[Rfam]
RNA sequence: UUGUAUCUGACAAGUUACUGGGAUUCCCCUUCAAGCCAUUGUGUUUGAUGCAGAUCCGGCUUUCAGAUGCA
Numbered sequence: 001u002u003g004u005a006u007c008u009g010a011c012a013a014g015u016u017a018c019u020g021g022g023a024u025u026c027c028c029c030u031u032c033a034a035g036c037c038a039u040u041g042u043g044u045u046u047g048a049u050g051c052a053g054a055u056c057c058g059g060c061u062u063u064c065a066g067a068u069g070c071a
Stems, first nucleotide, its partner, number of pairs: 002071004

Small nucleolar RNA snoR60: a 71-nucleotide RNA sequence from Phaseolus vulgaris. The family has 10 seed sequences and 1,133 matches in Rfam 15.1. By type it is a C/D-box small nucleolar RNA. The family's consensus secondary structure was predicted with PFOLD. Rfam links the family to the GO terms RNA processing and nucleolus. NCBI's taxonomy places the organism under Eukaryota, Spermatophyta, fabids, Fabaceae, Phaseolus.